[Rfam]
Nucleotides: 131
Stems, first nucleotide, its partner, number of pairs: 008081005014028004029052001031050006053076007101127001105125008
Number, partner (000 for none) and nucleotide at each position: 001000u002000a003000a004000a005000a006000g007000g008081g009080u010079c011078g012077g013000u014028u015027g016026g017025c018000u019000a020000a021000a022000u023000a024000u025017g026016c027015c028014a029052c030000u031050c032049u033048a034047g035046u036045c037000c038000g039000u040000u041000g042000u043000a044000a045036g046035g047034c048033u049032a050031g051000u052029g053076c054075u055074g056073u057072a058071u059070g060000g061000c062000u063000a064000u065000c066000a067000a068000g069000a070059c071058a072057u073056a074055u075054g076053g077012c078011c079010g080009a081008c082000a083000u084000a085000a086000u087000u088000u089000g090000u091000g092000g093000a094000a095000a096000u097000u098000g099000a100000u101127a102000u103000a104000g105125g106124g107123u108122u109121g110120g111119c112118u113000c114000g115000u116000u117000u118112g119111g120110c121109c122108g123107a124106c125105c126000c127101u128000u129000c130000a131000u